[Rfam]
RNA: Small nucleolar RNA SNORD79
Organism: Loxodonta africana
RNA sequence: UACUGUUGAUGAUGUUUUUAAAUAAUGGGAAUCUCUCUGAAAGAGGAUGAAGAGUAAUUUUUUAAAACUGAAACAGUA
Dot-bracket structure: (((((((................................................................)))))))